[Rfam]
The family of this 101-nucleotide sequence from Herbiconiux ginsengi is "mraW RNA". The source organism's lineage runs through Bacteria, Bacillati, Actinomycetota, Micrococcales and Herbiconiux. The family's consensus secondary structure is taken from published work.
RNA sequence: UCUGAGUCGUUGCCCCUGACUCCCAGCCGUUCAUCGCCCUGGCGCACUUCCCCGGUGCCAGGUCGGAAUGGAUGGGGAUCAGGGGUUGCGAAGCAGAAUCC
Numbered sequence: 001u002c003u004g005a006g007u008c009g010u011u012g013c014c015c016c017u018g019a020c021u022c023c024c025a026g027c028c029g030u031u032c033a034u035c036g037c038c039c040u041g042g043c044g045c046a047c048u049u050c051c052c053c054g055g056u057g058c059c060a061g062g063u064c065g066g067a068a069u070g071g072a073u074g075g076g077g078a079u080c081a082g083g084g085g086u087u088g089c090g091a092a093g094c095a096g097a098a099u100c101c
Stems, first nucleotide, its partner, number of pairs: 010088001012086005018080002021077005027071005034066003038062008